The family of this 554-nucleotide part of an RNA from Malacoplasma iowae is "Bacterial large subunit ribosomal RNA". Pairs were carried over by alignment from the consensus structure, which is taken from published work. A search with the family's covariance model found it, with a score of 2754 bits. Taxonomically the source falls in Malacoplasma iowae (Bacteria, Mycoplasmatota, Mycoplasmoidales, Mycoplasmoidaceae).

RNA sequence: UACUAAGGGCUUAUGGUGGAUGCCUUGGGACUGGAAGGCGAUGAAGGACGUGCUAAUCUGCGAUAAGCUACGGGUAGCUGAUAAGAGGCGUUUAUCCGUAGAUGUCCGAAUGGGGGAACCUAAAUAAUAGUGAUAUUAUUUAUCAUUAACUGAAUAAAUAGGUUAAUGAAGCUAUACCUAGUGAAGUGAAACAUCUCAGUAACUAGAGGAAAAGAAAACGAAUGUGAUUCCGUAAGUAGUGGCGAGCGAAAGCGGAACAGGCCAAACCGGAUUAAUUUCCGGGGUUGUAGGACUACAAUGUGGACUUAGAAAGGAUAGCAGAAUUGGUUGGGAAGCCAAAUCAUAGAGGGUGACAAUCCCGUAUGCGAAAUCUUUUUUAUACCUAGUAGUAUCCUGAGUACGGCGGGACACGUGGAAUCCUGUCGGAAUCUGCCCAGACCAUUGGGUAAGCCUAAAUACUAACCAGUCACCGAUAGCGCAUAGUACCGUGAGGGAAAGGUGAAAAGAACCCAGGGAUGGGAGUGAAAUAGAAUCUGAAACCAUAUGCCUACGAC
Numbered sequence: 001u002a003c004u005a006a007g008g009g010c011u012u013a014u015g016g017u018g019g020a021u022g023c024c025u026u027g028g029g030a031c032u033g034g035a036a037g038g039c040g041a042u043g044a045a046g047g048a049c050g051u052g053c054u055a056a057u058c059u060g061c062g063a064u065a066a067g068c069u070a071c072g073g074g075u076a077g078c079u080g081a082u083a084a085g086a087g088g089c090g091u092u093u094a095u096c097c098g099u100a101g102a103u104g105u106c107c108g109a110a111u112g113g114g115g116g117a118a119c120c121u122a123a124a125u126a127a128u129a130g131u132g133a134u135a136u137u138a139u140u141u142a143u144c145a146u147u148a149a150c151u152g153a154a155u156a157a158a159u160a161g162g163u164u165a166a167u168g169a170a171g172c173u174a175u176a177c178c179u180a181g182u183g184a185a186g187u188g189a190a191a192c193a194u195c196u197c198a199g200u201a202a203c204u205a206g207a208g209g210a211a212a213a214g215a216a217a218a219c220g221a222a223u224g225u226g227a228u229u230c231c232g233u234a235a236g237u238a239g240u241g242g243c244g245a246g247c248g249a250a251a252g253c254g255g256a257a258c259a260g261g262c263c264a265a266a267c268c269g270g271a272u273u274a275a276u277u278u279c280c281g282g283g284g285u286u287g288u289a290g291g292a293c294u295a296c297a298a299u300g301u302g303g304a305c306u307u308a309g310a311a312a313g314g315a316u317a318g319c320a321g322a323a324u325u326g327g328u329u330g331g332g333a334a335g336c337c338a339a340a341u342c343a344u345a346g347a348g349g350g351u352g353a354c355a356a357u358c359c360c361g362u363a364u365g366c367g368a369a370a371u372c373u374u375u376u377u378u379a380u381a382c383c384u385a386g387u388a389g390u391a392u393c394c395u396g397a398g399u400a401c402g403g404c405g406g407g408a409c410a411c412g413u414g415g416a417a418u419c420c421u422g423u424c425g426g427a428a429u430c431u432g433c434c435c436a437g438a439c440c441a442u443u444g445g446g447u448a449a450g451c452c453u454a455a456a457u458a459c460u461a462a463c464c465a466g467u468c469a470c471c472g473a474u475a476g477c478g479c480a481u482a483g484u485a486c487c488g489u490g491a492g493g494g495a496a497a498g499g500u501g502a503a504a505a506g507a508a509c510c511c512a513g514g515g516a517u518g519g520g521a522g523u524g525a526a527a528u529a530g531a532a533u534c535u536g537a538a539a540c541c542a543u544a545u546g547c548c549u550a551c552g553a554c
Stems, first nucleotide, its partner, number of pairs: 007549004012544005022534001023499002027471002029468006036460002038172002046107003049062003068101007077089003112121003122141007143169009177208001178206005188195002218225002228456001229256005239247002259453004267282005289395003293389004307379010318366003324339005342346001348360003401425008432447005486493002509520004